[Rfam]
RNA sequence: CGCCGGUCCCCCCGCGGCGAUAAGCUGUGAACCCCGUCAGGCCCGGAAGGGAGCAGCGGCAGCAGUGGACUCGGGCGCCGGGGUGUGGCUGGCGUCG
Number, nucleotide and partner (000 for none) at each position: 001c000002g000003c000004c091005g090006g089007u088008c087009c000010c083011c082012c081013c080014g079015c075016g000017g000018c073019g072020a071021u000022a000023a000024g066025c065026u064027g063028u062029g000030a000031a000032c000033c000034c059035c058036g057037u056038c000039a000040g000041g000042c051043c050044c049045g000046g000047a000048a000049g044050g043051g042052a000053g000054c000055a000056g037057c036058g035059g034060c000061a000062g028063c027064a026065g025066u024067g000068g000069a000070c000071u020072c019073g018074g000075g015076c000077g000078c000079c014080g013081g012082g011083g010084u000085g000086u000087g008088g007089c006090u005091g004092g000093c000094g000095u000096c000097g000
Rfam assigns this 97-nucleotide RNA from Alkalilimnicola ehrlichii to the family "Bacterial small signal recognition particle RNA".
The literature on the family includes a 2016 paper in Proc Natl Acad Sci U S A by Righetti et al., "Temperature-responsive in vitro RNA structurome of Yersinia pseudotuberculosis".
Rfam links the family to the GO terms signal recognition particle, plasma membrane targeting and SRP-dependent cotranslational protein targeting to membrane, signal sequence recognition.
The organism belongs to Alkalilimnicola, within Bacteria.
It scores 66 bits against the family's covariance model.